RNA sequence: UGGAGGACUGAGAAGGUAAGACACAGAAAAAUGAUUAACUAUCUUACCUUUUCUAGCCUCCAAAAUUAUAAUAGUGCAAUAGCAACUCAUGUUCCCCUUCUGACAUGAGGGAAAGCAGUACUGCAUUUG
Numbered sequence: 001u002g003g004a005g006g007a008c009u010g011a012g013a014a015g016g017u018a019a020g021a022c023a024c025a026g027a028a029a030a031a032u033g034a035u036u037a038a039c040u041a042u043c044u045u046a047c048c049u050u051u052u053c054u055a056g057c058c059u060c061c062a063a064a065a066u067u068a069u070a071a072u073a074g075u076g077c078a079a080u081a082g083c084a085a086c087u088c089a090u091g092u093u094c095c096c097c098u099u100c101u102g103a104c105a106u107g108a109g110g111g112a113a114a115g116c117a118g119u120a121c122u123g124c125a126u127u128u129g
Stems, first nucleotide, its partner, number of pairs: 002061005015048004019042001021040001081122002085119003093113001095111003099108002
Record summary:
Rfam assigns this 129-nucleotide sequence from Certhia familiaris to the family "Small nucleolar RNA SNORA47". Rfam classes the family as an H/ACA-box small nucleolar RNA. Rfam links the family to the GO terms nucleolus and RNA processing. Taxonomically the source falls in Certhia (Eukaryota, Craniata, Teleostomi, Sauropsida). It scores 51 bits against the family's covariance model. The literature on the family includes a 2001 paper in EMBO J by Huttenhofer et al., "RNomics: an experimental approach that identifies 201 candidates for novel, small, non-messenger RNAs in mouse".